RNA sequence: GCGCAUGCCUGAAAACUUGUAACCUAAGCUACGCACGGGGAACCUCGUUUCACCAUCAUUGCUUGGGGGAAAGUCCCCGGACUCUGGGCAGAGAUGUCCUGCAUGCAGCGCAGAGCGGUGGUUUGCGUAGCGUGUCGAUGCUAAGACGUCCUCGUGACAGAGCAUAACGCUUGCAAUCCAGAUUUGUCAAUGAGAUAGAUAUUCAAGUGAAGCAUAAACGUGCUUCUACAGAACGGGGCUCAUUCUCAGCUUGCG
Number, nucleotide and partner (000 for none) at each position: 001g000002c255003g254004c253005a252006u000007g250008c249009c000010u000011g247012a246013a000014a000015a208016c207017u206018u205019g204020u000021a000022a000023c067024c066025u065026a064027a063028g062029c061030u000031a000032c000033g000034c000035a000036c000037g000038g053039g000040g051041a050042a049043c000044c000045u000046c000047g000048u000049u042050u041051c040052a000053c038054c000055a000056u000057c000058a000059u000060u000061g029062c028063u027064u026065g025066g024067g023068g000069g000070a000071a000072a240073g239074u000075c238076c237077c236078c235079g000080g000081a000082c000083u000084c000085u000086g000087g098088g097089c096090a095091g000092a000093g000094a000095u090096g089097u088098c087099c113100u112101g111102c110103a000104u108105g000106c000107a000108g104109c000110g102111c101112a100113g099114a000115g000116c000117g179118g000119u000120g000121g177122u176123u175124u000125g000126c000127g000128u000129a000130g170131c169132g168133u167134g000135u000136c000137g000138a165139u164140g163141c162142u000143a000144a000145g000146a000147c000148g158149u157150c156151c000152u000153c000154g000155u000156g150157a149158c148159a000160g000161a000162g141163c140164a139165u138166a000167a133168c132169g131170c130171u000172u000173g000174c000175a123176a122177u121178c000179c117180a000181g000182a000183u000184u000185u000186g000187u000188c000189a000190a000191u000192g000193a000194g000195a000196u000197a000198g000199a000200u000201a000202u000203u000204c019205a018206a017207g016208u015209g000210a225211a224212g223213c222214a221215u220216a000217a000218a000219c000220g215221u214222g213223c212224u211225u210226c000227u000228a000229c000230a000231g000232a000233a000234c000235g078236g077237g076238g075239c073240u072241c000242a000243u000244u000245c000246u012247c011248a000249g008250c007251u000252u005253g004254c003255g002
Background:
The family of this 255-nucleotide sequence from Carassius auratus is "RNase MRP". About the family: RNase MRP is an enzymatically active ribonucleoprotein with two distinct roles in eukaryotes. In mitochondria it plays a direct role in the initiation of mitochondrial DNA replication. In the nucleus it is involved in precursor rRNA processing, where it cleaves the internal transcribed spacer 1 between 18S and 5.8S rRNAs. Despite distinct functions, RNase MRP has been shown to be evolutionarily related to RNase P. Like eukaryotic RNase P, RNase MRP is not catalytically active without associated protein subunits. Taxonomically the source falls in Carassius (Eukaryota, Opisthokonta, Actinopterygii, Teleostei). The family's RNA type in Rfam is ribozyme. A search with the family's covariance model found it, with a score of 135 bits.